[Rfam]
RNA sequence: AGUAAGGAUAGAGGCGCAAAAACCAUUAGUACACAACUUGAGGAUAAUGAGAUCCGUUGAAAAUUGUGGAAAGGGGAAUUUGCCGAAGUUUCAAGAAACCUCAUUGUUCUUGGAGCUGGUUCUGCAUUAAAUAAGUGCAGGAUUGUCAUGUAGGAAACUAUAUGGAGGGCUAUCUUACGC
Numbered sequence: 001a002g003u004a005a006g007g008a009u010a011g012a013g014g015c016g017c018a019a020a021a022a023c024c025a026u027u028a029g030u031a032c033a034c035a036a037c038u039u040g041a042g043g044a045u046a047a048u049g050a051g052a053u054c055c056g057u058u059g060a061a062a063a064u065u066g067u068g069g070a071a072a073g074g075g076g077a078a079u080u081u082g083c084c085g086a087a088g089u090u091u092c093a094a095g096a097a098a099c100c101u102c103a104u105u106g107u108u109c110u111u112g113g114a115g116c117u118g119g120u121u122c123u124g125c126a127u128u129a130a131a132u133a134a135g136u137g138c139a140g141g142a143u144u145g146u147c148a149u150g151u152a153g154g155a156a157a158c159u160a161u162a163u164g165g166a167g168g169g170c171u172a173u174c175u176u177a178c179g180c
Base pairs, nucleotide, nucleotide: 006175007174008173009172010171011170016083017082018081019080020079023076024075032068033067034066035065036064038062039061087117088116089115090114091113092112093111094110095109096108097107118144119143120142121141122140123139124138125137126136127135128134146165147164148163149162150161151160152159
RNA: Lysine riboswitch aptamer
Organism: Ureibacillus manganicus